[Rfam]
RNA: c-di-AMP riboswitch aptamer (ydaO/yuaA leader)
RNA sequence: AAGAAAAUCGAGCCGAAUUCCCUUCACGGGGAACGGGGGAACCACUUUGGGUGAAUUGAUCUCGUAACAGAGGGAUCAUAGGGAGACCUUCAACCGAAUCCUUAAGCUAACCUCGUAGGCAGUGGAAGGAGUUUUA
Numbered sequence: 001a002a003g004a005a006a007a008u009c010g011a012g013c014c015g016a017a018u019u020c021c022c023u024u025c026a027c028g029g030g031g032a033a034c035g036g037g038g039g040a041a042c043c044a045c046u047u048u049g050g051g052u053g054a055a056u057u058g059a060u061c062u063c064g065u066a067a068c069a070g071a072g073g074g075a076u077c078a079u080a081g082g083g084a085g086a087c088c089u090u091c092a093a094c095c096g097a098a099u100c101c102u103u104a105a106g107c108u109a110a111c112c113u114c115g116u117a118g119g120c121a122g123u124g125g126a127a128g129g130a131g132u133u134u135u136a
Base pairs, nucleotide, nucleotide: 012120013119014118018032019031020030033116034115035114036113037112038111049101050100051099057078058077059076060075061074062073063072081095082094